[Rfam]
RNA sequence: CGUCAUGAGUUGCCGUCGCCAAGCUCCGACUUGACGGCACGCCAACCCCACGCUCGUGGGUGGCUCGGAUGACGACGCGGCCGCGCGCUGACCGGUGCCCGGCAAGAGCGCCUC
Numbered sequence: 001c002g003u004c005a006u007g008a009g010u011u012g013c014c015g016u017c018g019c020c021a022a023g024c025u026c027c028g029a030c031u032u033g034a035c036g037g038c039a040c041g042c043c044a045a046c047c048c049c050a051c052g053c054u055c056g057u058g059g060g061u062g063g064c065u066c067g068g069a070u071g072a073c074g075a076c077g078c079g080g081c082c083g084c085g086c087g088c089u090g091a092c093c094g095g096u097g098c099c100c101g102g103c104a105a106g107a108g109c110g111c112c113u114c
Stems, first nucleotide, its partner, number of pairs: 001077004009040001012038006022031002041064003046060003050057002080103004085098005
RNA: SAM (S-adenosyl methionine) riboswitch aptamer